The record is a 121-nucleotide sequence from Paracoccus zhejiangensis, which matches "TPP riboswitch aptamer (THI element)" in Rfam. Gene Ontology term of the family: thiamine pyrophosphate binding. Pairs were carried over by alignment from the consensus structure, which is taken from published work.
RNA sequence: GAACCCACGCAGGGGAGUCCCGCCUAAGGGGACUGAGAGGCUGACGGGGCAAUGCCCGGUGAUGCGACCCUUUGAACCUGACCCAGUUGAUACUGGCGUAGGAAGCUAGGCGAGCAGAGAC
Numbered sequence: 001g002a003a004c005c006c007a008c009g010c011a012g013g014g015g016a017g018u019c020c021c022g023c024c025u026a027a028g029g030g031g032a033c034u035g036a037g038a039g040g041c042u043g044a045c046g047g048g049g050c051a052a053u054g055c056c057c058g059g060u061g062a063u064g065c066g067a068c069c070c071u072u073u074g075a076a077c078c079u080g081a082c083c084c085a086g087u088u089g090a091u092a093c094u095g096g097c098g099u100a101g102g103a104a105g106c107u108a109g110g111c112g113a114g115c116a117g118a119g120a121c
Stems, first nucleotide, its partner, number of pairs: 006109001009106002011071004017033005040065002077102004083096004